The record is a 103-nucleotide RNA from Variovorax sp. PDC80, which matches "TPP riboswitch aptamer (THI element)" in Rfam. The literature on the family includes a 2006 paper in Science by Thore et al., "Structure of the eukaryotic thiamine pyrophosphate riboswitch with its regulatory ligand".
[Rfam]
RNA sequence: GCGGUUCGCUAGGGGUGUUGGGUCGGCUUGCCGUCCCGGCUGAGAAAGUCCCUUUGAACCUGAUUGAGGUAAUCCUCGCGCAGGGAAGCUGGUCCGGCGGCCU
Numbered sequence: 001g002c003g004g005u006u007c008g009c010u011a012g013g014g015g016u017g018u019u020g021g022g023u024c025g026g027c028u029u030g031c032c033g034u035c036c037c038g039g040c041u042g043a044g045a046a047a048g049u050c051c052c053u054u055u056g057a058a059c060c061u062g063a064u065u066g067a068g069g070u071a072a073u074c075c076u077c078g079c080g081c082a083g084g085g086a087a088g089c090u091g092g093u094c095c096g097g098c099g100g101c102c103u
Stems, first nucleotide, its partner, number of pairs: 006091001008089003011053004016047001017040005059084004065078004